[Rfam]
RNA sequence: UUUACCUUUUAAUUUAACCCCGUGAGGUUAGCAAAGGUGAGAAACGGCAUACUCUCGAUGUAUAUCAAGAGCCUUUCCGCCUGCGCGCGGGAAGGCUUUUUUUGU
Numbered sequence: 001u002u003u004a005c006c007u008u009u010u011a012a013u014u015u016a017a018c019c020c021c022g023u024g025a026g027g028u029u030a031g032c033a034a035a036g037g038u039g040a041g042a043a044a045c046g047g048c049a050u051a052c053u054c055u056c057g058a059u060g061u062a063u064a065u066c067a068a069g070a071g072c073c074u075u076u077c078c079g080c081c082u083g084c085g086c087g088c089g090g091g092a093a094g095g096c097u098u099u100u101u102u103u104g105u
Stems, first nucleotide, its partner, number of pairs: 003039007014031006046066002049063004067100014
RNA: PyrR binding site